A member of the RNA family "Mammalian CPEB3 ribozyme" from Microcaecilia unicolor, 80 nucleotides long. From the family's description: The mammalian CPEB3 ribozyme is a self cleaving RNA located in the second intron of the CPEB3 gene which belongs to a family of genes regulating messenger RNA polyadenylation. Lineage of the source: Eukaryota > Bilateria > Sarcopterygii > Dipnotetrapodomorpha > Microcaecilia. A search with the family's covariance model found it, with a score of 38 bits.
RNA sequence: AUGCCAUUACUAGAAGCCAUUGCAGAAGGGUUUCACAGCUUGGCUCCUGUCAGAUUCCUAGGAAACAUGUGAAAUCUGCU
Number, nucleotide and partner (000 for none) at each position: 001a000002u000003g000004c000005c000006a000007u000008u000009a000010c000011u000012a000013g047014a000015a045016g044017c043018c042019a000020u000021u000022g079023c078024a077025g076026a075027a000028g041029g040030g039031u000032u000033u000034c000035a000036c000037a000038g000039c030040u029041u028042g018043g017044c016045u015046c000047c013048u000049g000050u000051c069052a068053g066054a000055u064056u063057c062058c000059u000060a000061g000062g057063a056064a055065a000066c053067a000068u052069g051070u000071g000072a000073a000074a000075u026076c025077u024078g023079c022080u000